[Rfam]
The record is an 86-nucleotide sequence from Alicyclobacillus acidoterrestris, which matches "Group II catalytic intron D1-D4-1" in Rfam.
RNA sequence: UAACCGGUACUGAAAGGUGCCGCUGAACGGGCAGAAGUCAGCAGACGGCAUAGUACCUGUGGAGGGACGCCAAAACAGGGAAGGCC
Numbered sequence: 001u002a003a004c005c006g007g008u009a010c011u012g013a014a015a016g017g018u019g020c021c022g023c024u025g026a027a028c029g030g031g032c033a034g035a036a037g038u039c040a041g042c043a044g045a046c047g048g049c050a051u052a053g054u055a056c057c058u059g060u061g062g063a064g065g066g067a068c069g070c071c072a073a074a075a076c077a078g079g080g081a082a083g084g085c086c
Stems, first nucleotide, its partner, number of pairs: 001025002005022007037046003047086003056079005
Lineage of the source: Bacteria > Bacillota > Bacilli > Alicyclobacillaceae > Alicyclobacillus. Rfam describes the family as follows. Group II introns are found in rRNA, tRNA and mRNA of organelles in fungi, plants and protists, and also in mRNA in bacteria.